The record is an 88-nucleotide sequence from Anaerosporomusa subterranea, which matches "c-di-GMP-I riboswitch aptamer" in Rfam. The source organism's lineage runs through Bacteria, Bacillati, Negativicutes, Acetonemataceae and Anaerosporomusa. The match comes from Rfam's covariance-model search (73 bits).
RNA sequence: GAUAUACAUUGGCAAACCUUUUGAAAAGAAGGGACGCAAAGCCGUGGGUCUAAGGACGAUUUAAGUCUAUGAUUGCCUGGUUGCAUUU
Number, nucleotide and partner (000 for none) at each position: 001g000002a000003u000004a000005u000006a000007c000008a000009u000010u000011g000012g037013c036014a000015a000016a000017c032018c031019u030020u029021u028022u027023g000024a000025a000026a000027a022028g021029a020030a019031g018032g017033g000034a000035c000036g013037c012038a000039a000040a082041g081042c080043c079044g000045u000046g077047g076048g073049u072050c071051u000052a000053a000054g000055g067056a066057c065058g000059a000060u000061u000062u000063a000064a000065g057066u056067c055068u000069a000070u000071g050072a049073u048074u000075g000076c047077c046078u000079g043080g042081u041082u040083g000084c000085a000086u000087u000088u000